[Rfam]
RNA: mir-1175 microRNA precursor family
RNA sequence: GGGACUAAGUGGAGAAGUGGUCUCUUCACUUGGAUUUCACAGUGAGAUUCAACUCCUCCAACUUAUUCCC
Dot-bracket structure: ......((((((((..((....((.(((((..........)))))))....).).))))).)))......